[Rfam]
RNA sequence: UGGGCGCGAGAGCGUCAGUG
Numbered sequence: 001u002g003g004g005c006g007c008g009a010g011a012g013c014g015u016c017a018g019u020g
Stems, first nucleotide, its partner, number of pairs: 003016005
Dot-bracket structure: ..(((((....)))))....

Rfam assigns this 20-nucleotide sequence from Leucosporidium creatinivorum to the family "HIV-1 stem-loop 4 packaging signal".
The source organism's lineage runs through Eukaryota, Opisthokonta, Leucosporidiales, Leucosporidiaceae and Leucosporidium.
The literature on the family includes a 2008 paper in Proc Natl Acad Sci U S A by Yu et al., "MS3D structural elucidation of the HIV-1 packaging signal".
It scores 32 bits against the family's covariance model.